[Rfam]
RNA sequence: AAAGUUCUUCGGGGCAGGGUGAAAUUCCCGACCGGCGGUAAAGUCCGCGAGCCGUUUUUAAGAGCAGUUAUAAAAAUGGCUGACCUGGUGAAAUUCCAGGACCGACAGUAAAGUCUGGAUGAGAGAAGAAGGCA
Numbered sequence: 001a002a003a004g005u006u007c008u009u010c011g012g013g014g015c016a017g018g019g020u021g022a023a024a025u026u027c028c029c030g031a032c033c034g035g036c037g038g039u040a041a042a043g044u045c046c047g048c049g050a051g052c053c054g055u056u057u058u059u060a061a062g063a064g065c066a067g068u069u070a071u072a073a074a075a076a077u078g079g080c081u082g083a084c085c086u087g088g089u090g091a092a093a094u095u096c097c098a099g100g101a102c103c104g105a106c107a108g109u110a111a112a113g114u115c116u117g118g119a120u121g122a123g124a125g126a127a128g129a130a131g132g133c134a
Stems, first nucleotide, its partner, number of pairs: 005130006017029003031114002033104002035048004043102002051080007084100005106117003
RNA: FMN riboswitch aptamer (RFN element)